[Rfam]
RNA sequence: UAACUUUAGAAACUAAGUGUGGGUGUGGCCUUAAAAGAUGUAAUGGCGACCCAUCCUUGGUUUCUGAGGUUU
Numbered sequence: 001u002a003a004c005u006u007u008a009g010a011a012a013c014u015a016a017g018u019g020u021g022g023g024u025g026u027g028g029c030c031u032u033a034a035a036a037g038a039u040g041u042a043a044u045g046g047c048g049a050c051c052c053a054u055c056c057u058u059g060g061u062u063u064c065u066g067a068g069g070u071u072u
Stems, first nucleotide, its partner, number of pairs: 002071006009064006016057002021052004028047003

Source information:
The family of this 72-nucleotide sequence from Denticeps clupeoides is "mir-551 microRNA precursor family". Gene Ontology terms of the family: RISC complex and miRNA-mediated post-transcriptional gene silencing. The base pairs follow the family's consensus structure, which was predicted with RNAalifold.